Shown here is a 77-nucleotide RNA from Novosphingobium sp. Fuku2-ISO-50, a member of the family "Makes More Granules Regulator RNA (mmgR)". Taxonomically the source falls in Novosphingobium (Bacteria, Pseudomonadati, Pseudomonadota, Alphaproteobacteria). Its family is annotated with DNA-templated transcription, termination, protein binding and response to nitrogen compound in the Gene Ontology. From the family's description: SuhB later renamed mmgR (makes more granules regulator) was a putative non-coding RNA found multiple times in the Agrobacterium tumefaciens genome and related alpha-proteobacteria. Other non-coding RNAs uncovered in the same analysis include: speF, ybhL, metA, and serC.Several studies inSinorhizobium meliloti showed that suhB element is indeed a non-coding RNA:firstly it was detected on Northern blot and called Sm8RNA, secondly in an RNAseq study referred to as SmelC689.The mutant phenotype's (strain lacking the small RNA) cytoplasm contains higher content of polyhydroxybutyrate (PBH)storage granules than wild type strain.
[Rfam]
RNA sequence: GGAAAUUGCCUUUCAGGCAUCCUCUCCCAAACUUUCCAGAGCCGCCCGGUUUCGAGCGGCUCUUUUUUUUGCUCAAG
Numbered sequence: 001g002g003a004a005a006u007u008g009c010c011u012u013u014c015a016g017g018c019a020u021c022c023u024c025u026c027c028c029a030a031a032c033u034u035u036c037c038a039g040a041g042c043c044g045c046c047c048g049g050u051u052u053c054g055a056g057c058g059g060c061u062c063u064u065u066u067u068u069u070u071g072c073u074c075a076a077g
Stems, first nucleotide, its partner, number of pairs: 008018004039062007047054001